This 80-nucleotide RNA sequence from Cephus cinctus belongs to the Rfam family "mir-11 microRNA precursor family".
The family has 20 seed sequences and 138 matches in Rfam 15.1.
RNA sequence: GUUCCCUGAUGGAGCUCUGGCUGUGACUUGUGUGUUUAACAUAUGAAGAUCACAUCACAGGCAGAGUUCUACUUAGGUAA
Number, nucleotide and partner (000 for none) at each position: 001g000002u000003u000004c077005c076006c000007u000008g000009a000010u071011g070012g069013a068014g067015c066016u065017c064018u000019g000020g000021c060022u059023g058024u057025g056026a055027c000028u000029u000030g053031u052032g051033u000034g000035u000036u000037u000038a000039a000040c000041a000042u000043a000044u000045g000046a000047a000048g000049a000050u000051c032052a031053c030054a000055u026056c025057a024058c023059a022060g021061g000062c000063a000064g017065a016066g015067u014068u013069c012070u011071a010072c000073u000074u000075a000076g005077g004078u000079a000080a000